[Rfam]
RNA sequence: UAUACAAAUAUCCGCCGAGCGGCUGGGCCUACACCUGCUACGCAUAAAUUACGUUGGCAAGGCACGGACAGUACGCCGUGGCAAUUCCGCCACCAGGGUAUGUUUGGAAACGAGCAUACCUCCCGAAUUUGGAAAGGUGUGUAUAUGCUACUUAC
Numbered sequence: 001u002a003u004a005c006a007a008a009u010a011u012c013c014g015c016c017g018a019g020c021g022g023c024u025g026g027g028c029c030u031a032c033a034c035c036u037g038c039u040a041c042g043c044a045u046a047a048a049u050u051a052c053g054u055u056g057g058c059a060a061g062g063c064a065c066g067g068a069c070a071g072u073a074c075g076c077c078g079u080g081g082c083a084a085u086u087c088c089g090c091c092a093c094c095a096g097g098g099u100a101u102g103u104u105u106g107g108a109a110a111c112g113a114g115c116a117u118a119c120c121u122c123c124c125g126a127a128u129u130u131g132g133a134a135a136g137g138u139g140u141g142u143a144u145a146u147g148c149u150a151c152u153u154a155c
Base pairs, nucleotide, nucleotide: 006146011141013139014138015137016136019076020075021074024071026069028067029066034062035061036060078093079092080091081090082089096121097120098119099118100117101116102115103114104113105112106111122132123131
RNA: Molybdenum/Tungsten riboswitch aptamer (Moco RNA motif)
Organism: Aliidiomarina taiwanensis